[Rfam]
This 32-nucleotide RNA sequence belongs to the Rfam family "L31-Firmicutes ribosomal protein leader".
By type it is a cis-regulatory leader.
The family is grouped with related families in Rfam's "Ribosomal Protein L31 Leader clan".
The sequence is in the family's curated seed alignment.

RNA sequence: CUAUGAUUUUUAAAAAGUCAUGGCGGAAGGAG
Numbered sequence: 001c002u003a004u005g006a007u008u009u010u011u012a013a014a015a016a017g018u019c020a021u022g023g024c025g026g027a028a029g030g031a032g
Stems, first nucleotide, its partner, number of pairs: 001023010
Dot-bracket structure: ((((((((((...)))))))))).........